[Rfam]
RNA sequence: UAGUACCUUCGGGGCAGGGUGCGGGACAAAAUCCCAAUUCCCGAUCGGUGGUGAUAACCCACGAGCGCGCUCUUGCGCACGAUCUGGUGAAAUUCCAGGGUCGACGGUAUAGUCCGGAUAUAAGAAGGAUCGA
Number, nucleotide and partner (000 for none) at each position: 001u000002a000003g131004u000005a000006c128007c127008u126009u125010c124011g000012g000013g000014g000015c000016a000017g042018g041019g040020u000021g000022c000023g000024g000025g000026a000027c000028a000029a000030a000031a000032u000033c000034c000035c000036a000037a000038u000039u000040c019041c018042c017043g000044a113045u112046c103047g102048g062049u061050g060051g059052u000053g000054a000055u000056a000057a101058c100059c051060c050061a049062c048063g000064a000065g000066c000067g000068c000069g000070c000071u000072c000073u000074u000075g000076c000077g000078c000079a000080c000081g000082a000083u099084c098085u097086g096087g095088u000089g000090a000091a000092a000093u000094u000095c087096c086097a085098g084099g083100g058101u057102c047103g046104a000105c116106g115107g114108u000109a000110u000111a000112g045113u044114c107115c106116g105117g000118a000119u000120a000121u000122a000123a000124g010125a009126a008127g007128g006129a000130u000131c003132g000133a000

This 133-nucleotide RNA sequence from Longilinea arvoryzae belongs to the Rfam family "FMN riboswitch aptamer (RFN element)".
Pairs were carried over by alignment from the consensus structure, which is taken from published work.
Rfam describes the family as follows. The RFN element is a highly conserved domain that is found frequently in the 5'-untranslated regions of prokaryotic mRNAs that encode for flavin mononucleotide (FMN) biosynthesis and transport proteins.
The source organism's lineage runs through Bacteria, Bacillati, Chloroflexota, Anaerolineae and Longilinea.